[Rfam]
RNA sequence: AUACUCGGGUUUCUCUUCAUAUCGUACAAGUCUUUCGCCUUUUACUAAAGACUUCCGUGGAGAGGAACACUAUUGAGUUCAACUUUUUUUGGCAGGCUUAGCCUUGUAGCUGAGCCU
Numbered sequence: 001a002u003a004c005u006c007g008g009g010u011u012u013c014u015c016u017u018c019a020u021a022u023c024g025u026a027c028a029a030g031u032c033u034u035u036c037g038c039c040u041u042u043u044a045c046u047a048a049a050g051a052c053u054u055c056c057g058u059g060g061a062g063a064g065g066a067a068c069a070c071u072a073u074u075g076a077g078u079u080c081a082a083c084u085u086u087u088u089u090u091g092g093c094a095g096g097c098u099u100a101g102c103c104u105u106g107u108a109g110c111u112g113a114g115c116c117u
Base pairs, nucleotide, nucleotide: 003078004077005076006075009068010067011066012065013064014063015062016061017060018059019058028054029053030052031051032050033049034048035047095116096115097114098113099112100111
Rfam assigns this 117-nucleotide RNA sequence from Labrus bergylta to the family "U5 spliceosomal RNA". Rfam's curators write: U5 RNA is a component of both types of known spliceosome. Taxonomically the source falls in Labrus (Eukaryota, Teleostomi, Euacanthomorphacea, Labridae). Pairs were carried over by alignment from the consensus structure, which is taken from published work.